Record summary:
A member of the RNA family "Small nucleolar RNA Z40" from Albula goreensis, 74 nucleotides long. A reference for the family is Chen et al. (2003), "The high diversity of snoRNAs in plants: identification and comparative study of 120 snoRNA genes from Oryza sativa", Nucleic Acids Res. It scores 56 bits against the family's covariance model. NCBI's taxonomy places the organism under Eukaryota, Metazoa, Chordata, Actinopterygii, Albula. The family's RNA type in Rfam is C/D-box small nucleolar RNA.

RNA sequence: CAUUGUUGUGAUGAUUGGCAAAAAUGUUCAACUGCUCUGAAAAAUGUGAAUGAGCUAUGCCUUUCUGAACCAUU
Dot-bracket structure: .((.((..............................................................)).)).